[Rfam]
RNA sequence: ACUUCUCGCACUCGGCAGUGCGGUGAACGAGUGCUGAAGCGCCGAGUGUUCGGCGUCGACGGAAACCAGCGCGGCGUCGGUGUCGCCCGACGAGAAGU
Numbered sequence: 001a002c003u004u005c006u007c008g009c010a011c012u013c014g015g016c017a018g019u020g021c022g023g024u025g026a027a028c029g030a031g032u033g034c035u036g037a038a039g040c041g042c043c044g045a046g047u048g049u050u051c052g053g054c055g056u057c058g059a060c061g062g063a064a065a066c067c068a069g070c071g072c073g074g075c076g077u078c079g080g081u082g083u084c085g086c087c088c089g090a091c092g093a094g095a096a097g098u
Stems, first nucleotide, its partner, number of pairs: 001098006
A member of the RNA family "Small nucleolar RNA sn2991" from Caenorhabditis bovis, 98 nucleotides long. The source organism's lineage runs through Eukaryota, Opisthokonta, Ecdysozoa, Rhabditomorpha and Caenorhabditis. A reference for the family is Higa et al. (2002), "Location of 2(')-O-methyl nucleotides in 26S rRNA and methylation guide snoRNAs in Caenorhabditis elegans", Biochem Biophys Res Commun.